[Rfam]
RNA: Xanthomonas sRNA sX9
Organism: Pseudogulbenkiania sp. NH8B
RNA sequence: AUGUACUACGUGUACAUGGCGGUUCCUGCGCUCCGGCCGCACUUAACCAGCCUUGGCUCGCUCGCCCACUGGGCUAGGC
Numbered sequence: 001a002u003g004u005a006c007u008a009c010g011u012g013u014a015c016a017u018g019g020c021g022g023u024u025c026c027u028g029c030g031c032u033c034c035g036g037c038c039g040c041a042c043u044u045a046a047c048c049a050g051c052c053u054u055g056g057c058u059c060g061c062u063c064g065c066c067c068a069c070u071g072g073g074c075u076a077g078g079c
Base pairs, nucleotide, nucleotide: 002016003015004014005013006012020035021034022033025030047077049075050074051073052072053071